[Rfam]
RNA sequence: ACCUUGCCCUCGGGGUCCAGUUUUCCCAGGAAUCCCUUGGGCACUCACAUGGGGAUUCCUGGCAAUACUGUUCUUGGGGGCGAGGC
Numbered sequence: 001a002c003c004u005u006g007c008c009c010u011c012g013g014g015g016u017c018c019a020g021u022u023u024u025c026c027c028a029g030g031a032a033u034c035c036c037u038u039g040g041g042c043a044c045u046c047a048c049a050u051g052g053g054g055a056u057u058c059c060u061g062g063c064a065a066u067a068c069u070g071u072u073c074u075u076g077g078g079g080g081c082g083a084g085g086c
Stems, first nucleotide, its partner, number of pairs: 018070004023065002026062012